[Rfam]
Nucleotides: 195
Stems, first nucleotide, its partner, number of pairs: 018057006031047003058187004068119004072111006080100002082093001126183005134174006152168001154166003
Number, partner (000 for none) and nucleotide at each position: 001000u002000a003000c004000a005000a006000c007000u008000g009000a010000u011000a012000u013000a014000c015000c016000g017000a018057u019056g020055u021054c022053a023052g024000g025000a026000a027000u028000g029000a030000a031047a032046g033045c034000c035000g036000u037000c038000a039000u040000g041000u042000u043000g044000a045033g046032c047031u048000g049000a050000a051000a052023c053022u054021g055020a056019c057018a058187g059186u060185c061184u062000a063000a064000u065000a066000c067000u068119c069118c070117u071116g072111c073110a074109u075108g076107c077106a078000u079000u080100u081099a082093u083000c084000u085000u086000g087000a088000u089000a090000g091000a092000g093082a094000u095000a096000c097000a098000u099081u100080g101000c102000g103000u104000u105000a106077u107076g108075u109074a110073u111072g112000a113000a114000a115000c116071u117070a118069g119068g120000u121000g122000a123000a124000g125000u126183c127182g128181g129180c130179u131000g132000a133000a134174u135173c136172u137171a138170a139169u140000u141000c142000u143000a144000a145000a146000g147000c148000c149000a150000c151000u152168c153000u154166u155165a156164c157000a158000g159000a160000g161000a162000g163000g164156g165155u166154a167000u168152g169139g170138u171137u172136a173135g174134a175000g176000a177000u178000a179130g180129g181128c182127c183126g184061g185060g186059a187058c188000g189000c190000u191000a192000u193000a194000a195000a